The record is a 134-nucleotide RNA sequence from Carlito syrichta, which matches "Small nucleolar RNA SNORA22" in Rfam. Lineage of the source: Eukaryota > Dipnotetrapodomorpha > Amniota > Mammalia > Carlito. Pairs were carried over by alignment from the consensus structure, which was predicted with RNAfold. About the family: ACA22 is a member of the H/ACA class of snoRNA that guide the sites of modification of uridines to pseudouridines.
RNA sequence: UAUUGCAGUGAACACCCAACUGUGCUUUAUCGUUCCCUUGGCUUUGACCCUGUGCUAGAGCAAUGCCUGUUCUUCUCCUCUGCACUGAAAGGAGUAUUUAUCCUUUCAAGUGUAUUCACAAAGCCAGUACAUUA
Numbered sequence: 001u002a003u004u005g006c007a008g009u010g011a012a013c014a015c016c017c018a019a020c021u022g023u024g025c026u027u028u029a030u031c032g033u034u035c036c037c038u039u040g041g042c043u044u045u046g047a048c049c050c051u052g053u054g055c056u057a058g059a060g061c062a063a064u065g066c067c068u069g070u071u072c073u074u075c076u077c078c079u080c081u082g083c084a085c086u087g088a089a090a091g092g093a094g095u096a097u098u099u100a101u102c103c104u105u106u107c108a109a110g111u112g113u114a115u116u117c118a119c120a121a122a123g124c125c126a127g128u129a130c131a132u133u134a
Stems, first nucleotide, its partner, number of pairs: 004054005010049001013046002016041004022035001024033002057073006079120001081118002083112004087107007